[Rfam]
RNA sequence: GCACCAAAUCUUUCCCAUUCCUUACUGCGCAGUGUGGGCUUGGGGACACAUGGUGCUGACAGCAAAGCAGAGCAAAUCCAGACAAGUGACUUGAGUACCUGCCUCUACACCUCUGCAACAGUU
Numbered sequence: 001g002c003a004c005c006a007a008a009u010c011u012u013u014c015c016c017a018u019u020c021c022u023u024a025c026u027g028c029g030c031a032g033u034g035u036g037g038g039c040u041u042g043g044g045g046a047c048a049c050a051u052g053g054u055g056c057u058g059a060c061a062g063c064a065a066a067g068c069a070g071a072g073c074a075a076a077u078c079c080a081g082a083c084a085a086g087u088g089a090c091u092u093g094a095g096u097a098c099c100u101g102c103c104u105c106u107a108c109a110c111c112u113c114u115g116c117a118a119c120a121g122u123u
Base pairs, nucleotide, nucleotide: 001056002055003054004053005052012046013045014044015043016042017041020038021037067116068115069114070113071112072111080104081103083101084100086098087097
RNA: Small nucleolar RNA SNORA55
Organism: Piprites chloris